[Rfam]
RNA sequence: UCCCCGGGUCCCCAAUGCAGCCCCGGAUGAGCCUGCAGUAUUUUCCUUAUAUGAUUGGGCCCCACGGCUGGCGGCGGCGCUUGCCCGGAGCCUAAGAGGAUUAUAAAGGGUCCGGCGAAGUGGGGCCGGGGGCCCGGGG
Numbered sequence: 001u002c003c004c005c006g007g008g009u010c011c012c013c014a015a016u017g018c019a020g021c022c023c024c025g026g027a028u029g030a031g032c033c034u035g036c037a038g039u040a041u042u043u044u045c046c047u048u049a050u051a052u053g054a055u056u057g058g059g060c061c062c063c064a065c066g067g068c069u070g071g072c073g074g075c076g077g078c079g080c081u082u083g084c085c086c087g088g089a090g091c092c093u094a095a096g097a098g099g100a101u102u103a104u105a106a107a108g109g110g111u112c113c114g115g116c117g118a119a120g121u122g123g124g125g126c127c128g129g130g131g132g133c134c135c136g137g138g139g
Stems, first nucleotide, its partner, number of pairs: 001139003005136009020126005055095006062088002067084002070081004
The record is a 139-nucleotide RNA sequence from Myotis lucifugus, which matches "small Cajal body-specific RNA 17" in Rfam. The family has 6 seed sequences and 262 matches in Rfam 15.1. A reference for the family is Tycowski et al. (2004), "Guide RNAs with 5' Caps and Novel Box C/D snoRNA-like Domains for Modification of snRNAs in Metazoa", Curr Biol. scaRNAs are a specific class of small nuclear RNAs which localise to the Cajal bodies and guide the modification of RNA polymerase II transcribed spliceosomal RNAs U1, U2, U4, U5 and U12. The complete human U12-22/U4-8 scaRNA is composed of two tandem C/D box domains (termed U12-22 and U4-8). The family's consensus secondary structure is taken from published work. Lineage of the source: Eukaryota > Metazoa > Chiroptera > Yangochiroptera > Myotis.